[Rfam]
RNA sequence: UGCUGGUCCAAACAUGGUGAGUUACUGUGAUAAUUCACAGUCAAUUACAGACCUACUUACAGAUCUGCCUUCUCCCCACUUCCCACUACUGUAUUUGAUUAGUCUUUA
Numbered sequence: 001u002g003c004u005g006g007u008c009c010a011a012a013c014a015u016g017g018u019g020a021g022u023u024a025c026u027g028u029g030a031u032a033a034u035u036c037a038c039a040g041u042c043a044a045u046u047a048c049a050g051a052c053c054u055a056c057u058u059a060c061a062g063a064u065c066u067g068c069c070u071u072c073u074c075c076c077c078a079c080u081u082c083c084c085a086c087u088a089c090u091g092u093a094u095u096u097g098a099u100u101a102g103u104c105u106u107u108a
Base pairs, nucleotide, nucleotide: 002103003102004101005100006099007098008097010096011095014092015091016087017086018085019084021082039070040069043066
The family of this 108-nucleotide sequence from Nomascus leucogenys is "Y RNA". The family's RNA type in Rfam is non-coding RNA gene. Rfam describes the family as follows. Y RNAs are components of the Ro ribonucleoprotein particle (Ro RNP), in association with Ro60 and La proteins. The Y RNAs and Ro60 and La proteins are well conserved, but the function of the Ro RNP is not known. In humans the RNA component can be one of four small RNAs -- hY1, hY3, hY4 and hY5. These small RNAs are predicted to fold into a conserved secondary structure containing three stem structures. The largest of the four, hY1, contains an additional hairpin. This family includes a significant number of annotated pseudogenes and the model is expected to discriminate poorly between real and Y RNA related pseudogenes. Pairs were carried over by alignment from the consensus structure, which is taken from published work. The match comes from Rfam's covariance-model search (48 bits).